RNA: 6S-Flavo RNA
RNA sequence: ACUCAACAAAAAUCUAUUAUAGAGGAUGAGUUUUAGUUGCUAAAGCAAGCCAUCAGAACUAGUUUCUUUAGAUGGAUCCUUGAUCAGCUAGUUAGUCCUAAUCAUGUAAUAAUAGAGUUU
Numbered sequence: 001a002c003u004c005a006a007c008a009a010a011a012a013u014c015u016a017u018u019a020u021a022g023a024g025g026a027u028g029a030g031u032u033u034u035a036g037u038u039g040c041u042a043a044a045g046c047a048a049g050c051c052a053u054c055a056g057a058a059c060u061a062g063u064u065u066c067u068u069u070a071g072a073u074g075g076a077u078c079c080u081u082g083a084u085c086a087g088c089u090a091g092u093u094a095g096u097c098c099u100a101a102u103c104a105u106g107u108a109a110u111a112a113u114a115g116a117g118u119u120u
Base pairs, nucleotide, nucleotide: 023099024098025097026096027095034090035089036088037087038086043081044080045079050075051074052073053072